[Rfam]
RNA sequence: AGCGGCAUGGAUGCCGCUUGUGCUAAGCAGAAGCGAUGUUUCGGUUGUACCGAAACUCGCAGCCAAAAGUGUACAAGGAUGUACACUUUUGGCGUAG
Number, nucleotide and partner (000 for none) at each position: 001a018002g017003c016004g015005g014006c013007a000008u000009g000010g000011a000012u000013g006014c005015c004016g003017c002018u001019u000020g000021u000022g000023c000024u000025a000026a000027g000028c000029a000030g000031a000032a000033g000034c059035g058036a057037u000038g056039u055040u054041u053042c052043g051044g050045u049046u000047g000048u000049a045050c044051c043052g042053a041054a040055a039056c038057u036058c035059g034060c000061a000062g093063c092064c091065a090066a089067a088068a087069g086070u085071g084072u083073a082074c081075a000076a000077g000078g000079a000080u000081g074082u073083a072084c071085a070086c069087u068088u067089u066090u065091g064092g063093c062094g000095u000096a000097g000
Description: A member of the RNA family "TD-2 RNA" from Treponema vincentii, 97 nucleotides long. The family's RNA type in Rfam is small RNA. Rfam 15.1 lists 310 matches to the family in 11 species. The base pairs follow the family's consensus structure, which is taken from published work.